[Rfam]
RNA: Small Cajal body specific RNA 8
Organism: Helicoverpa armigera
RNA sequence: CUGGAUUAGAUACAAGUUCUAACUUUUGAACUUUGUUAGAACUUCACUGAAAAUCCAAAGAGCAAAGGUCCUUAUGAAGACUUUCUUUUGUUGAGCUUUAAAAGAUAGACAGAUACGAGGGCCACAUUA
Numbered sequence: 001c002u003g004g005a006u007u008a009g010a011u012a013c014a015a016g017u018u019c020u021a022a023c024u025u026u027u028g029a030a031c032u033u034u035g036u037u038a039g040a041a042c043u044u045c046a047c048u049g050a051a052a053a054u055c056c057a058a059a060g061a062g063c064a065a066a067g068g069u070c071c072u073u074a075u076g077a078a079g080a081c082u083u084u085c086u087u088u089u090g091u092u093g094a095g096c097u098u099u100a101a102a103a104g105a106u107a108g109a110c111a112g113a114u115a116c117g118a119g120g121g122c123c124a125c126a127u128u129a
Base pairs, nucleotide, nucleotide: 002057003056004055005054006053007052014044015043016042017041021037022036023035067123068122069121070120071119072118073117081108082107086103087102088101